[Rfam]
The family of this 505-nucleotide RNA sequence from Streptomyces purpureus is "Saccharopolyspora sRNA 350".
The match comes from Rfam's covariance-model search (132 bits).
Nucleotides: 505
Stems, first nucleotide, its partner, number of pairs: 007389006016380001018328002021325002025322001028319002031316002039311002042308003045303001048300002051297001054233002059228002062225002065111004075103001080099001082097002085094002118221001120219001122217002126213002130209001134204001136202002140198002143196002150191001152189007160178002164174003234294001237290006247283001249281004254276002257271003329342004354376004361371003391431002394428002397425001399423003403418003407415001437476002440473001442471002446467001447465006477504002480499003487496002
Number, partner (000 for none) and nucleotide at each position: 001000c002000g003000g004000g005000c006000c007389g008388u009387g010386u011385g012384g013000u014000c015000c016380c017000a018328g019327g020000u021325g022324g023000c024000c025322u026000c027000g028319c029318c030000g031316u032315c033000g034000g035000u036000g037000a038000g039311c040310g041000c042308g043307c044306c045303g046000u047000c048300g049299c050000c051297g052000a053000a054233g055232u056000a057000g058000g059228c060227g061000c062225c063224g064000u065111c066110g067109g068108c069000g070000a071000g072000c073000a074000c075103g076000u077000c078000g079000a080099g081000g082097a083096c084000c085094g086093c087000c088000u089000c090000g091000u092000c093086g094085c095000c096083g097082u098000a099080c100000g101000g102000c103075c104000c105000c106000u107000c108068g109067c110066c111065g112000a113000c114000c115000u116000g117000c118221u119000c120219g121000a122217c123216g124000c125000g126213g127212c128000c129000g130209u131000g132000c133000g134204c135000g136202a137201g138000c139000a140198g141197g142000a143196a144195g145000a146000c147000c148000c149000g150191g151000u152189c153188c154187u155186u156185g157184g158183c159000c160178u161177c162000g163000c164174c165173g166172c167000g168000g169000g170000u171000g172166g173165c174164g175000a176000u177161g178160a179000c180000g181000u182000c183158g184157c185156c186155g187154g188153g189152g190000g191150c192000g193000a194000a195144c196143u197141c198140c199000c200000g201137c202136u203000g204134g205000g206000u207000g208000c209130a210000g211000c212127g213126c214000u215000g216123c217122g218000c219120c220000a221118g222000c223000u224063c225062g226000u227060u228059g229000a230000g231000c232055g233054c234294g235000c236000c237290g238289u239288c240287g241286u242285c243000c244000g245000a246000g247283u248000a249281g250280c251279c252278g253000c254276g255275c256000a257271g258270g259269g260000c261000g262000g263000g264000c265000a266000g267000c268000u269259c270258c271257c272000c273000g274000a275255g276254c277000u278252c279251g280250g281249c282000g283247g284000g285242g286241a287240u288239g289238a290237c291000c292000g293000c294234c295000a296000c297051c298000c299049g300048c301000u302000c303045c304000c305000c306044g307043g308042u309000c310040u311039g312000u313000a314000c315032g316031a317000a318029g319028g320000a321000c322025a323000c324022c325021c326000u327019u328018c329342c330341g331340u332339c333000g334000c335000c336000g337000a338000c339332g340331g341330c342329g343000u344000a345000g346000c347000u348000g349000a350000g351000c352000c353000u354376g355375c356374g357373g358000u359000u360000c361371a362370c363369g364000c365000g366000a367000u368000a369363c370362g371361u372000a373357c374356c375355g376354c377000c378000c379000u380016g381000c382000a383000c384012c385011u386010g387009c388008a389007c390000c391431c392430a393000c394428g395427g396000c397425a398000g399423c400422a401421u402000c403418c404417g405416c406000a407415g408000c409000a410000g411000c412000c413000a414000c415407c416405g417404u418403g419000a420000g421401g422400u423399g424000a425397u426000c427395u428394c429000c430392u431391g432000c433000a434000u435000c436000u437476g438475c439000g440473g441000g442471g443470c444000c445000g446467a447465c448464u449463u450462g451461g452460u453000g454000g455000u456000g457000g458000u459000c460452g461451c462450c463449a464448g465447g466000u467446u468000a469000c470443g471442c472000g473440c474000g475438g476437c477504g478503g479000c480499c481498g482497u483000a484000c485000c486000g487496a488495g489000a490000c491000u492000c493000u494000g495488c496487u497482g498481c499480g500000c501000g502000g503478c504477c505000a
Rfam classes the family as an antisense RNA.